[Rfam]
RNA sequence: CAACCUGGAAGAGGCGCGUCGCCCAGGCAGUGUGUUGGAGGAACCGUAUCCAGCGAAGGCAUAUGAUGGGGUGCGACGCCGAGGUAUUACCCACGCGGAGUGGGACGUAUCGACCACAGGGGCUGAAUCCUCUGGGUUGUCACCGGAACGUCUGAUGAACAGACGUUUUGCAAGGUGGGGCGCUUCCGGGUGA
Numbered sequence: 001c002a003a004c005c006u007g008g009a010a011g012a013g014g015c016g017c018g019u020c021g022c023c024c025a026g027g028c029a030g031u032g033u034g035u036u037g038g039a040g041g042a043a044c045c046g047u048a049u050c051c052a053g054c055g056a057a058g059g060c061a062u063a064u065g066a067u068g069g070g071g072u073g074c075g076a077c078g079c080c081g082a083g084g085u086a087u088u089a090c091c092c093a094c095g096c097g098g099a100g101u102g103g104g105a106c107g108u109a110u111c112g113a114c115c116a117c118a119g120g121g122g123c124u125g126a127a128u129c130c131u132c133u134g135g136g137u138u139g140u141c142a143c144c145g146g147a148a149c150g151u152c153u154g155a156u157g158a159a160c161a162g163a164c165g166u167u168u169u170g171c172a173a174g175g176u177g178g179g180g181c182g183c184u185u186c187c188g189g190g191u192g193a
Stems, first nucleotide, its partner, number of pairs: 006188006016079007024071001030064007083111005090104005112138004117134006140178005
The record is a 193-nucleotide RNA sequence from Erwinia sp. Leaf53, which matches "Lysine riboswitch aptamer" in Rfam. The organism belongs to Erwinia, within Bacteria. A search with the family's covariance model found it, with a score of 77 bits. Rfam describes the family as follows. Riboswitches are metabolite binding domains within certain messenger RNAs that serve as precision sensors for their corresponding targets. Pairs were carried over by alignment from the consensus structure, which is taken from published work.